Rfam assigns this 168-nucleotide RNA sequence from Pelodiscus sinensis to the family "TUC338". The base pairs follow the family's consensus structure, which was predicted with WAR. A search with the family's covariance model found it, with a score of 145 bits. On this family, see Braconi et al., Proc Natl Acad Sci U S A 2011: "Expression and functional role of a transcribed noncoding RNA with an ultraconserved element in hepatocellular carcinoma".
RNA sequence: UUGAGUGCCCUGGAGGCUGAAGUCCUCUAUUUAUCCACAGAACAGAUUUGGCUUGGGCAGUGGCAGUGCAAGCUUCCCCACCAAUGUGCCUCAACCCUGACCUGGAGGAACCACCUCUAGAGGUGAGAGGGUAGUUCAGUCUCCAGAACCAUUCAGUCCUUGGCUUUG
Numbered sequence: 001u002u003g004a005g006u007g008c009c010c011u012g013g014a015g016g017c018u019g020a021a022g023u024c025c026u027c028u029a030u031u032u033a034u035c036c037a038c039a040g041a042a043c044a045g046a047u048u049u050g051g052c053u054u055g056g057g058c059a060g061u062g063g064c065a066g067u068g069c070a071a072g073c074u075u076c077c078c079c080a081c082c083a084a085u086g087u088g089c090c091u092c093a094a095c096c097c098u099g100a101c102c103u104g105g106a107g108g109a110a111c112c113a114c115c116u117c118u119a120g121a122g123g124u125g126a127g128a129g130g131g132u133a134g135u136u137c138a139g140u141c142u143c144c145a146g147a148a149c150c151a152u153u154c155a156g157u158c159c160u161u162g163g164c165u166u167u168g
Stems, first nucleotide, its partner, number of pairs: 002155003007149001011145011024131002027129002030127006038099003051089002054086002062077002065074002102120007